[Rfam]
RNA sequence: UGAAUAUCGUUUGUUUUCUAAUGUAUAUACCUGGGAAUAUGGCUCAGGCGUCUCUACCGGAUCACCGUAAAUCAUCCGACUACGUCAGAAAACGAUGGGAAA
Numbered sequence: 001u002g003a004a005u006a007u008c009g010u011u012u013g014u015u016u017u018c019u020a021a022u023g024u025a026u027a028u029a030c031c032u033g034g035g036a037a038u039a040u041g042g043c044u045c046a047g048g049c050g051u052c053u054c055u056a057c058c059g060g061a062u063c064a065c066c067g068u069a070a071a072u073c074a075u076c077c078g079a080c081u082a083c084g085u086c087a088g089a090a091a092a093c094g095a096u097g098g099g100a101a102a
Stems, first nucleotide, its partner, number of pairs: 018088002021085005030048006058078005064072001
A member of the RNA family "Purine riboswitch aptamer" from Falsibacillus albus, 102 nucleotides long.
Taxonomically the source falls in Falsibacillus (Bacteria, Bacillati, Bacillota, Bacilli).
Rfam's curators write: Riboswitches are metabolite binding domains within certain messenger RNAs that serve as precision sensors for their corresponding targets. Allosteric rearrangement of mRNA structure is mediated by ligand binding, and this results in modulation of gene expression. A class of riboswitches that selectively recognises guanine and becomes saturated at concentrations as low as 5 nM. In Bacillus subtilis, this mRNA motif is located on at least five separate transcriptional units that together encode 17 genes that are mostly involved in purine transport and purine nucleotide biosynthesis. It has also been shown that some members of this family are specific for adenine instead. Hence this family are termed purine riboswitches.